[Rfam]
RNA sequence: GGCGUUUUUCGCAGCGGCGGAGCUCGACCGCCGACUGCGGUGAUCUGCGACUACAUCGCCGCGUUCAGGGACCGUUUUGGGGUCGAGCCGAUCUGUCAGGUGCUGUCUGAGCACGGAAUGAAGAUCGCCCCG
Numbered sequence: 001g002g003c004g005u006u007u008u009u010c011g012c013a014g015c016g017g018c019g020g021a022g023c024u025c026g027a028c029c030g031c032c033g034a035c036u037g038c039g040g041u042g043a044u045c046u047g048c049g050a051c052u053a054c055a056u057c058g059c060c061g062c063g064u065u066c067a068g069g070g071a072c073c074g075u076u077u078u079g080g081g082g083u084c085g086a087g088c089c090g091a092u093c094u095g096u097c098a099g100g101u102g103c104u105g106u107c108u109g110a111g112c113a114c115g116g117a118a119u120g121a122a123g124a125u126c127g128c129c130c131c132g
Base pairs, nucleotide, nucleotide: 016032017031018030019029020028078132079131080130081129082128089127090126092124093123094122

Shown here is a 132-nucleotide sequence from Blastococcus tunisiensis, a member of the family "ALIL pseudoknot". The source organism's lineage runs through Bacteria, Actinomycetota, Actinomycetes, Geodermatophilaceae and Blastococcus. The family's RNA type in Rfam is cis-regulatory element. A search with the family's covariance model found it, with a score of 68 bits. Gene Ontology term of the family: positive regulation of translational frameshifting.